Rfam assigns this 77-nucleotide RNA from Eleutherodactylus coqui to the family "mir-30 microRNA precursor family". Pairs were carried over by alignment from the consensus structure, which was predicted with PFOLD. About the family: This family consists of the mammalian microRNA (miRNA) precursor mir-30a. Animal miRNAs are transcribed as ~70nt precursors and subsequently processed by the Dicer enzyme to give a ~22nt product. In this case the mature sequence comes from both the 3' (miR-30) and 5' (mir-97-6) arms of the precursor.
RNA sequence: UAAGCGGCUGUAAACAUCCUCGACUGGAAGCUGUGAAGAAGCUGAUGGGCUUUCAGUCGGAUGUUUGCAGCUGCCAA
Numbered sequence: 001u002a003a004g005c006g007g008c009u010g011u012a013a014a015c016a017u018c019c020u021c022g023a024c025u026g027g028a029a030g031c032u033g034u035g036a037a038g039a040a041g042c043u044g045a046u047g048g049g050c051u052u053u054c055a056g057u058c059g060g061a062u063g064u065u066u067g068c069a070g071c072u073g074c075c076a077a
Base pairs, nucleotide, nucleotide: 004074005073006072008070009069010068011067012066013065014064015063016062017061018060019059023057024056025055026054027053028052029051030050031049032048